Source information: Shown here is a 69-nucleotide sequence from Nonomuraea jiangxiensis, a member of the family "ASpks TB sRNA". Lineage of the source: Bacteria > Actinomycetes > Streptosporangiales > Streptosporangiaceae > Nonomuraea. It is annotated as an antisense RNA. The match comes from Rfam's covariance-model search (68 bits).

[Rfam]
Nucleotides: 069
Stems, first nucleotide, its partner, number of pairs: 015025003030064002032059002037054003041050003
Number, partner (000 for none) and nucleotide at each position: 001000c002000u003000u004000c005000a006000c007000c008000g009000a010000c011000c012000c013000c014000a015025g016024c017023c018000a019000c020000a021000a022000c023017g024016g025015c026000g027000a028000u029000g030064g031063c032059c033058g034000a035000u036000c037054c038053u039052g040000c041050c042049c043048g044000u045000a046000a047000g048043c049042g050041g051000c052039c053038a054037g055000c056000a057000a058033c059032g060000c061000c062000u063031g064030c065000g066000c067000c068000u069000c